Shown here is an 84-nucleotide RNA from Tetracentron sinense, a member of the family "Plastid-psbM 3UTR RNA".
NCBI's taxonomy places the organism under Eukaryota, Viridiplantae, Streptophytina, Euphyllophyta, Tetracentron.
Pairs were carried over by alignment from the consensus structure, which was predicted with LocARNA.
RNA sequence: UAUAUAUUGUAUGGUAGAAAGAAAUAUAUGAACCUUUCUACCACACUAUCUAUUAUUGUUAGUGUGUUGUAUAAAGUUGUGCUA
Numbered sequence: 001u002a003u004a005u006a007u008u009g010u011a012u013g014g015u016a017g018a019a020a021g022a023a024a025u026a027u028a029u030g031a032a033c034c035u036u037u038c039u040a041c042c043a044c045a046c047u048a049u050c051u052a053u054u055a056u057u058g059u060u061a062g063u064g065u066g067u068u069g070u071a072u073a074a075a076g077u078u079g080u081g082c083u084a
Base pairs, nucleotide, nucleotide: 006049007048009046010045012043013042014041015040016039017038018037019036020035021034022027